RNA: Pyrrolysine insertion sequence mttB
Organism: Salibaculum griseiflavum
RNA sequence: UUGCCGAUGCCAAGCUGCCGGACAUGCAGGCGGGCUGGGAACAGAUGUGUUCCAACGUCAUGGCCGGGCUGUCCGGGCUGAACAUGGUCUACGAGGCAG
Numbered sequence: 001u002u003g004c005c006g007a008u009g010c011c012a013a014g015c016u017g018c019c020g021g022a023c024a025u026g027c028a029g030g031c032g033g034g035c036u037g038g039g040a041a042c043a044g045a046u047g048u049g050u051u052c053c054a055a056c057g058u059c060a061u062g063g064c065c066g067g068g069c070u071g072u073c074c075g076g077g078c079u080g081a082a083c084a085u086g087g088u089c090u091a092c093g094a095g096g097c098a099g
Base pairs, nucleotide, nucleotide: 003011032061034059076097078095079094